[Rfam]
RNA sequence: CGCCCGCUUGCGGGAGAGGGUUGGGGUGAGGGAAUGCAGUCGGCCACCGAAGGGGCACACGACGAAAGUUGUAAUCUCUCAGGUAACAAGGACAGAUGGGGCGAA
Numbered sequence: 001c002g003c004c005c006g007c008u009u010g011c012g013g014g015a016g017a018g019g020g021u022u023g024g025g026g027u028g029a030g031g032g033a034a035u036g037c038a039g040u041c042g043g044c045c046a047c048c049g050a051a052g053g054g055g056c057a058c059a060c061g062a063c064g065a066a067a068g069u070u071g072u073a074a075u076c077u078c079u080c081a082g083g084u085a086a087c088a089a090g091g092a093c094a095g096a097u098g099g100g101g102c103g104a105a
Base pairs, nucleotide, nucleotide: 005100007098009096011095013093020044021043022042023041046084047083048082049080050079053078054077055076059072060071061070062069
RNA: Glycine riboswitch aptamer